[Rfam]
RNA sequence: AUUCACAGGCACUUGGGGUCUUCUGUGGCCCCUGGUGCAAUAACUGUGCCAACAGCAGAGGGAGCAUUAAACUCACUGCCCAUGGUAAAGUGUGGGGAGUGAUACCCGUGUUCCUAUAAUC
Numbered sequence: 001a002u003u004c005a006c007a008g009g010c011a012c013u014u015g016g017g018g019u020c021u022u023c024u025g026u027g028g029c030c031c032c033u034g035g036u037g038c039a040a041u042a043a044c045u046g047u048g049c050c051a052a053c054a055g056c057a058g059a060g061g062g063a064g065c066a067u068u069a070a071a072c073u074c075a076c077u078g079c080c081c082a083u084g085g086u087a088a089a090g091u092g093u094g095g096g097g098a099g100u101g102a103u104a105c106c107c108g109u110g111u112u113c114c115u116a117u118a119a120u121c
Stems, first nucleotide, its partner, number of pairs: 005047004009038004017030004061114001063112005073102005081094003

Small nucleolar RNA ACA64: a 121-nucleotide sequence from Bucco capensis.
A reference for the family is Schattner et al. (2006), "A computational screen for mammalian pseudouridylation guide H/ACA RNAs", RNA.
Gene Ontology terms of the family: RNA processing and nucleolus.
Rfam 15.1 lists 9,537 matches to the family in 620 species.
The organism belongs to Bucco, within Eukaryota.
The match comes from Rfam's covariance-model search (55 bits).